[Rfam]
RNA: Small nucleolar RNA ACA64
Organism: Peromyscus maniculatus
RNA sequence: GUUCAUUGAAAACUAUCCCUGGCAUUGGCCUUGAUGGUUAUGUGGGGGUUAAGAGCUGCUGCUCAGAACCACUAGGGGUCUCAGAUCGCCACCUGCUACUCCAGUGUGGGAGGGUGAAACCUGGCCCUGACAGCC
Numbered sequence: 001g002u003u004c005a006u007u008g009a010a011a012a013c014u015a016u017c018c019c020u021g022g023c024a025u026u027g028g029c030c031u032u033g034a035u036g037g038u039u040a041u042g043u044g045g046g047g048g049u050u051a052a053g054a055g056c057u058g059c060u061g062c063u064c065a066g067a068a069c070c071a072c073u074a075g076g077g078g079u080c081u082c083a084g085a086u087c088g089c090c091a092c093c094u095g096c097u098a099c100u101c102c103a104g105u106g107u108g109g110g111a112g113g114g115u116g117a118a119a120c121c122u123g124g125c126c127c128u129g130a131c132a133g134c135c
Base pairs, nucleotide, nucleotide: 005060007058008057014051015050022043023042024041075128077126078125079124080123086117087116088115089114090113094108095107096106